This 88-nucleotide RNA from Dissostichus mawsoni belongs to the Rfam family "mir-145 microRNA precursor family". Pairs were carried over by alignment from the consensus structure, which was predicted with RNAalifold. NCBI's taxonomy places the organism under Eukaryota, Deuterostomia, Osteoglossocephalai, Ctenosquamata, Dissostichus. For this family Rfam cites "The developmental miRNA profiles of zebrafish as determined by small RNA cloning" (Chen et al., Genes Dev, 2005).
[Rfam]
RNA sequence: UCCCCUCUCCCGGGGUCCAGUUUUCCCAGGAAUCCCUUGACCUAUCAGAAAGUGGGAUUCCUGGAAAUACUGUUCUUGGGGGCGGGGC
Number, nucleotide and partner (000 for none) at each position: 001u000002c000003c000004c000005c000006u000007c000008u000009c000010c000011c000012g000013g000014g000015g000016u000017c000018c072019a071020g070021u069022u000023u067024u066025c000026c064027c063028a062029g061030g060031a059032a058033u057034c056035c055036c054037u000038u000039g000040a000041c000042c000043u000044a000045u000046c000047a000048g000049a000050a000051a000052g000053u000054g036055g035056g034057a033058u032059u031060c030061c029062u028063g027064g026065a000066a024067a023068u000069a021070c020071u019072g018073u000074u000075c000076u000077u000078g000079g000080g000081g000082g000083c000084g000085g000086g000087g000088c000